[Rfam]
Source information
Shown here is a 116-nucleotide sequence from Sporanaerobacter sp. PP17-6a, a member of the family "Group II catalytic intron D1-D4-2". A reference for the family is Chu et al. (2001), "Control of branch-site choice by a group II intron", EMBO J. Rfam describes the family as follows. Group II introns are found in rRNA, tRNA and mRNA of organelles in fungi, plants and protists, and also in mRNA in bacteria.

RNA sequence: GAGAGUAGGUCUCUCGGAAUCGAUAUCCAGAUAUAGAUUUCAAACCACCUUUGGGUGCUGUAGUCAAAAGCUAUGGUACUGAGCGCAAAGGCAAAAGGCUGUUGGAACAGUCAGGU
Number, nucleotide and partner (000 for none) at each position: 001g015002a014003g013004a012005g011006u000007a000008g000009g000010u000011c005012u004013c003014u002015c001016g041017g040018a039019a038020u037021c036022g000023a034024u033025a032026u031027c000028c000029a000030g000031a026032u025033a024034u023035a000036g021037a020038u019039u018040u017041c016042a000043a000044a000045c000046c115047a000048c091049c090050u089051u088052u087053g086054g080055g079056u000057g077058c076059u075060g000061u073062a072063g071064u070065c000066a000067a000068a000069a000070g064071c063072u062073a061074u000075g059076g058077u057078a000079c055080u054081g000082a000083g000084c000085g000086c053087a052088a051089a050090g049091g048092c000093a000094a000095a000096a000097g112098g111099c110100u109101g108102u107103u000104g000105g000106a000107a102108c101109a100110g099111u098112c097113a000114g000115g046116u000